The family of this 73-nucleotide RNA from Clostridium sp. CAG:91 is "Clostridium-PBP RNA". The source organism's lineage runs through Bacteria, Clostridia, Eubacteriales, Clostridiaceae and Clostridium. By type it is a small RNA. Rfam's curators put it in the seed alignment. The family's consensus secondary structure is taken from published work.
RNA sequence: AAAAGGUGCUAUAGUAAUCAACGUUUAAGGACGGCUGUCGUCCGUAGAAAACAGACAGGAGGAUAAUAUUAUG
Numbered sequence: 001a002a003a004a005g006g007u008g009c010u011a012u013a014g015u016a017a018u019c020a021a022c023g024u025u026u027a028a029g030g031a032c033g034g035c036u037g038u039c040g041u042c043c044g045u046a047g048a049a050a051a052c053a054g055a056c057a058g059g060a061g062g063a064u065a066a067u068a069u070u071a072u073g
Base pairs, nucleotide, nucleotide: 029043030042031041032040033039